[Rfam]
RNA sequence: CCCUAGCCCAGAUUGCAACGGAAAGCUUUUUUUGAAAAAACAAAUUAGUUUUGUUGGCUUUACAAAGCGACCUCGGGAGCUCUUGGAAAGGCUUAUAAAACUUUUGUUUUUCAAAAAAACUUGCAGUGGAAAGCUGGAUUAGCU
Numbered sequence: 001c002c003c004u005a006g007c008c009c010a011g012a013u014u015g016c017a018a019c020g021g022a023a024a025g026c027u028u029u030u031u032u033u034g035a036a037a038a039a040a041c042a043a044a045u046u047a048g049u050u051u052u053g054u055u056g057g058c059u060u061u062a063c064a065a066a067g068c069g070a071c072c073u074c075g076g077g078a079g080c081u082c083u084u085g086g087a088a089a090g091g092c093u094u095a096u097a098a099a100a101c102u103u104u105u106g107u108u109u110u111u112c113a114a115a116a117a118a119a120c121u122u123g124c125a126g127u128g129g130a131a132a133g134c135u136g137g138a139u140u141a142g143c144u
Stems, first nucleotide, its partner, number of pairs: 009136003013132002018127002023122003029117011